[Rfam]
RNA sequence: UAUUAGGUUGGUGCAAAAGUAUUUGCAGCUUUUGCCAUGAAAAGUCAUGGCAAAAGCUGCAAAUACUUUUGCACCAACCUAAUA
Numbered sequence: 001u002a003u004u005a006g007g008u009u010g011g012u013g014c015a016a017a018a019g020u021a022u023u024u025g026c027a028g029c030u031u032u033u034g035c036c037a038u039g040a041a042a043a044g045u046c047a048u049g050g051c052a053a054a055a056g057c058u059g060c061a062a063a064u065a066c067u068u069u070u071g072c073a074c075c076a077a078c079c080u081a082a083u084a
Stems, first nucleotide, its partner, number of pairs: 001084040
RNA: mir-548 microRNA precursor family